[Rfam]
The record is a 203-nucleotide RNA sequence from Megasphaera cerevisiae, which matches "raiA RNA" in Rfam.
It scores 186 bits against the family's covariance model.
RNA sequence: ACGACAUGUGCUGUGGUUGAAAGUCGAUGCCAGUCGCAGGCAAAGCGAUCCACGUAAGGGACUCAAAGCAGUUCUGAUCAUAGUGCGGCCUAGAAGUAAGUCCUGCCGCAAAAAGCGAGAGGAGCAGUAGUGGGGGAUAGAUAUCCAUGAGCGAACCUUCCAGCAGGCGAGUGUGGGGGUAAAAACCAGGUCAGACAUGUCAA
Numbered sequence: 001a002c003g004a005c006a007u008g009u010g011c012u013g014u015g016g017u018u019g020a021a022a023g024u025c026g027a028u029g030c031c032a033g034u035c036g037c038a039g040g041c042a043a044a045g046c047g048a049u050c051c052a053c054g055u056a057a058g059g060g061a062c063u064c065a066a067a068g069c070a071g072u073u074c075u076g077a078u079c080a081u082a083g084u085g086c087g088g089c090c091u092a093g094a095a096g097u098a099a100g101u102c103c104u105g106c107c108g109c110a111a112a113a114a115g116c117g118a119g120a121g122g123a124g125c126a127g128u129a130g131u132g133g134g135g136g137a138u139a140g141a142u143a144u145c146c147a148u149g150a151g152c153g154a155a156c157c158u159u160c161c162a163g164c165a166g167g168c169g170a171g172u173g174u175g176g177g178g179g180u181a182a183a184a185a186c187c188a189g190g191u192c193a194g195a196c197a198u199g200u201c202a203a
Base pairs, nucleotide, nucleotide: 003201004200005199006198007197008196009195011194012193013192014188015187016186017185018184027174028173029172030040033089034088035087036086037085038084049083054078057075058074059073061072062071063070081181102167103166104165105164106163107117108116109115121160122159123158124157130152131151136145137144138143